[Rfam]
RNA sequence: CGAUACAUCAAAUUGGUUGUGGAAUGUUUCGAGUCAUAUCACAGCCAUUUUGAUGAGCUUGG
Numbered sequence: 001c002g003a004u005a006c007a008u009c010a011a012a013u014u015g016g017u018u019g020u021g022g023a024a025u026g027u028u029u030c031g032a033g034u035c036a037u038a039u040c041a042c043a044g045c046c047a048u049u050u051u052g053a054u055g056a057g058c059u060u061g062g
Stems, first nucleotide, its partner, number of pairs: 006055007014047009025038003

mir-2 microRNA precursor family: a 62-nucleotide sequence from Apis florea.
Rfam's curators put it in the seed alignment.
The family's consensus secondary structure was predicted with PFOLD.
The literature on the family includes a 2001 paper in Science by Lee and Ambros, "An extensive class of small RNAs in Caenorhabditis elegans".